Overview:
The family of this 72-nucleotide sequence from Amoebophrya sp. A25 is "tRNA". The family's RNA type in Rfam is transfer RNA. Pairs were carried over by alignment from the consensus structure, which is taken from published work. A search with the family's covariance model found it, with a score of 48 bits. NCBI's taxonomy places the organism under Eukaryota, Sar, Alveolata, Syndiniales, Amoebophrya. About the family: Transfer RNA (tRNA) molecules are approximately 80 nucleotides in length.
[Rfam]
RNA sequence: UCCGCGAAAGUAAAGUGGUCAGCAUAUUCGCCUGUUACGCGGAUGACCCGGGUGCGAUUCCCGGUCGCGGAG
Numbered sequence: 001u002c003c004g005c006g007a008a009a010g011u012a013a014a015g016u017g018g019u020c021a022g023c024a025u026a027u028u029c030g031c032c033u034g035u036u037a038c039g040c041g042g043a044u045g046a047c048c049c050g051g052g053u054g055c056g057a058u059u060c061c062c063g064g065u066c067g068c069g070g071a072g
Stems, first nucleotide, its partner, number of pairs: 001071007010025002027043005048064005